[Rfam]
RNA sequence: CAUCCGCAAGGGCAAAGCAUUUCGAAAGGGUGCGACGCAAAACCACCGGCCUACGUUCCCGGCAUUGGGAAUAGGGUAGCGGGGUUGCCGGA
Number, nucleotide and partner (000 for none) at each position: 001c000002a000003u000004c000005c000006g000007c000008a000009a000010g000011g000012g038013c037014a000015a000016a000017g033018c032019a031020u030021u000022u029023c028024g000025a000026a000027a000028g023029g022030g020031u019032g018033c017034g000035a000036c000037g013038c012039a000040a000041a086042a085043c084044c083045a000046c082047c081048g080049g077050c076051c075052u000053a000054c000055g000056u071057u070058c069059c068060c067061g066062g000063c000064a000065u000066u061067g060068g059069g058070a057071a056072u000073a000074g000075g051076g050077u049078a000079g000080c048081g047082g046083g044084g043085u042086u041087g000088c000089c000090g000091g000092a000
c-di-GMP-I riboswitch aptamer: a 92-nucleotide sequence from Desulfonatronum thiosulfatophilum.